[Rfam]
Rfam assigns this 112-nucleotide RNA sequence from Giardia duodenalis to the family "Small nucleolar RNA GlsR21". Gene Ontology terms of the family: nucleolus and RNA processing. Rfam classes the family as an H/ACA-box small nucleolar RNA.
RNA sequence: AAAACCAAUAUUACUACCAUCGGUCCUCACUACUAGAUCGGUGUUAUGCUUUGUUGGGAUAACAUGCCGUGCCAAUCAGGCAGCUAGUGUCUCUCUACUGGUGCGGCAUACA
Dot-bracket structure: ....((((((....((.((((((((..........)))))))).)).....))))))........((((.((((.(.((((.......))))....).)))).)))).....
Taxonomically the source falls in Giardia duodenalis (Eukaryota, Metamonada, Fornicata, Hexamitidae).